RNA: MIR6288 microRNA precursor family
Organism: Prunus dulcis
RNA sequence: CCAAAAUUAGUCACUUGUCAUUUUCUAAUUAGUUCUUAGAAAAUUCUAACUCACUUAAAACCAAUUAGAAAAUAACAAGUGACUAGUUUUGA
Numbered sequence: 001c002c003a004a005a006a007u008u009a010g011u012c013a014c015u016u017g018u019c020a021u022u023u024u025c026u027a028a029u030u031a032g033u034u035c036u037u038a039g040a041a042a043a044u045u046c047u048a049a050c051u052c053a054c055u056u057a058a059a060a061c062c063a064a065u066u067a068g069a070a071a072a073u074a075a076c077a078a079g080u081g082a083c084u085a086g087u088u089u090u091g092a
Base pairs, nucleotide, nucleotide: 002091003090004089005088006087007086008085009084010083011082012081013080014079015078016077017076018075020073021072022071023070024069025068026067027066028065029064030063032061033060034059036057038055039054